Source information
A member of the RNA family "MIR1120/MIR1122 microRNA precursor family" from Triticum aestivum, 87 nucleotides long. The source organism's lineage runs through Eukaryota, Spermatophyta, commelinids, Triticodae and Triticum. The family's consensus secondary structure was predicted with RNAalifold.
RNA sequence: GUACUCCCUUCGUCCCAUAAUGUAAGACAUUUUUUGACACUACACUAGUGUCAAAAUGUGUCUUAUAUUAUGGGACGGAGGGAGUAG
Numbered sequence: 001g002u003a004c005u006c007c008c009u010u011c012g013u014c015c016c017a018u019a020a021u022g023u024a025a026g027a028c029a030u031u032u033u034u035u036g037a038c039a040c041u042a043c044a045c046u047a048g049u050g051u052c053a054a055a056a057u058g059u060g061u062c063u064u065a066u067a068u069u070a071u072g073g074g075a076c077g078g079a080g081g082g083a084g085u086a087g
Stems, first nucleotide, its partner, number of pairs: 003085003007081005013075005019069012032056010